[Rfam]
RNA sequence: CAGUGGACUCAUCCAUAAAGUAGAAAGCACUACUAAACGCUGGUGUCCAAGUGUAGUGUUUCCUACUUUAUGGAUGAGUGUACUGU
Numbered sequence: 001c002a003g004u005g006g007a008c009u010c011a012u013c014c015a016u017a018a019a020g021u022a023g024a025a026a027g028c029a030c031u032a033c034u035a036a037a038c039g040c041u042g043g044u045g046u047c048c049a050a051g052u053g054u055a056g057u058g059u060u061u062c063c064u065a066c067u068u069u070a071u072g073g074a075u076g077a078g079u080g081u082a083c084u085g086u
Stems, first nucleotide, its partner, number of pairs: 014072010026060008
Dot-bracket structure: .............((((((((((..((((((((...................))))))))..))))))))))..............

Rfam assigns this 86-nucleotide sequence from Phrynocephalus forsythii to the family "mir-142 microRNA precursor family". The match comes from Rfam's covariance-model search (97 bits). The base pairs follow the family's consensus structure, which was predicted with RNAalifold. The organism belongs to Phrynocephalus, within Eukaryota.